[Rfam]
RNA sequence: AUUCAUUGAGGGCAGAAAGGUUCCUGCCGCACCUCUUAGGAGGUACCUGAGAUGACGAGGUUACUGAACGUCCAAUGAAU
Numbered sequence: 001a002u003u004c005a006u007u008g009a010g011g012g013c014a015g016a017a018a019g020g021u022u023c024c025u026g027c028c029g030c031a032c033c034u035c036u037u038a039g040g041a042g043g044u045a046c047c048u049g050a051g052a053u054g055a056c057g058a059g060g061u062u063a064c065u066g067a068a069c070g071u072c073c074a075a076u077g078a079a080u
Base pairs, nucleotide, nucleotide: 001080002079003078004077005076006075007074008073011028012027013026014025015024019065020064021063030049031044032043033042034041054072055071056070057069
A member of the RNA family "skipping-rope RNA", 80 nucleotides long.